A member of the RNA family "MIR2619 microRNA precursor family" from Medicago truncatula, 222 nucleotides long. The family's consensus secondary structure was predicted with RNAalifold. Its family is annotated with miRNA-mediated post-transcriptional gene silencing and RISC complex in the Gene Ontology. The match comes from Rfam's covariance-model search (134 bits). Lineage of the source: Eukaryota > Viridiplantae > Gunneridae > Trifolieae > Medicago.
[Rfam]
RNA sequence: AAACAGCCCCUAUGUAUUGGAUCUUUAGUAGUUUUGGCCCCCAAGGUCAAUUUUGAUUUGGUCUUCGAUGAUGUGGUAAUUUAAAAUAAAUAAAUAUUUUUUUAGAAAAAUUAUUAUUUUUUAAUUUAAAAAAAAAACGUGACGUCCACGUGUGCAUUGACCAAGUCAAAAUUGGUCUUGGGGGCCAAAACUGCCAAAGAUCCAAUACAUAGGGGGCUGUUU
Dot-bracket structure: ((.(((((..((((((((((((((((.(((((((((((((((((..........................((.(((...(.............................................................)...))).))..........................))))))))))))))))).))))))))))))))))...))))).))